[Rfam]
RNA: mir-1990 microRNA precursor family
RNA sequence: UCGUGCAGUAAGUUGAUGGGGUCCCAGGUUAUUUUGUCCCGGGACUACGUCAACUACUAGCACGC
Numbered sequence: 001u002c003g004u005g006c007a008g009u010a011a012g013u014u015g016a017u018g019g020g021g022u023c024c025c026a027g028g029u030u031a032u033u034u035u036g037u038c039c040c041g042g043g044a045c046u047a048c049g050u051c052a053a054c055u056a057c058u059a060g061c062a063c064g065c
Base pairs, nucleotide, nucleotide: 004062005061006060008058011055012054013053014052015051016050017049018048020046021045022044023043024042025041027039028038